[Rfam]
RNA sequence: ACUUGUUCCGCUCUAGCAGCACGUAAAUAUUGGCGUAGUGAAAUAAAUAUUAAACACCAAUAUUAUUGUGCUGCUUUAGUGUGACAGGG
Numbered sequence: 001a002c003u004u005g006u007u008c009c010g011c012u013c014u015a016g017c018a019g020c021a022c023g024u025a026a027a028u029a030u031u032g033g034c035g036u037a038g039u040g041a042a043a044u045a046a047a048u049a050u051u052a053a054a055c056a057c058c059a060a061u062a063u064u065a066u067u068g069u070g071c072u073g074c075u076u077u078a079g080u081g082u083g084a085c086a087g088g089g
Base pairs, nucleotide, nucleotide: 002088003087004086005085006084015075016074017073018072019071020070021069022068023067026064027063028062029061030060031059032058033057035055036054
Dot-bracket structure: .(((((........(((((((((..((((((((.((.................)).))))))))..)))))))))........))))).